[Rfam]
RNA sequence: GGGUCAAUCAUGAGAACUCAUAUGGUCGCCAAGAGUGAAGAAGACCUGAAAUUCAUGCUCAAUAGGAUUACGCUGAGGCCG
Numbered sequence: 001g002g003g004u005c006a007a008u009c010a011u012g013a014g015a016a017c018u019c020a021u022a023u024g025g026u027c028g029c030c031a032a033g034a035g036u037g038a039a040g041a042a043g044a045c046c047u048g049a050a051a052u053u054c055a056u057g058c059u060c061a062a063u064a065g066g067a068u069u070a071c072g073c074u075g076a077g078g079c080c081g
Stems, first nucleotide, its partner, number of pairs: 002080003005075002008072001
RNA: Small nucleolar RNA SNORD115
Organism: Gulo gulo